[Rfam]
RNA sequence: GCGGGAAUAGAAAUGUUUCCGUUCACUCCUCACACCACACUCCGCCUGAACUUCGGUUUAGGCGGUU
Number, nucleotide and partner (000 for none) at each position: 001g022002c021003g020004g019005g018006a017007a016008u015009a000010g000011a000012a000013a000014u000015g008016u007017u006018u005019c004020c003021g002022u001023u000024c000025a000026c000027u000028c000029c000030u000031c000032a000033c000034a000035c000036c000037a000038c000039a000040c000041u000042c000043c064044g063045c062046c061047u060048g059049a058050a000051c000052u000053u000054c000055g000056g000057u000058u049059u048060a047061g046062g045063c044064g043065g000066u000067u000